[Rfam]
RNA sequence: CUGUACUAUCUUGUCUGUGGUUCGAGGGUGAGAUUGUCACAGCAGUAUAGGGGGUACAUUCGAGAACCGUAAGACAAUUAAUAUAAA
Numbered sequence: 001c002u003g004u005a006c007u008a009u010c011u012u013g014u015c016u017g018u019g020g021u022u023c024g025a026g027g028g029u030g031a032g033a034u035u036g037u038c039a040c041a042g043c044a045g046u047a048u049a050g051g052g053g054g055u056a057c058a059u060u061c062g063a064g065a066a067c068c069g070u071a072a073g074a075c076a077a078u079u080a081a082u083a084u085a086a087a
Stems, first nucleotide, its partner, number of pairs: 002085004007080002011077006018069006026061005033055003037051002
RNA: mir-2856 microRNA precursor family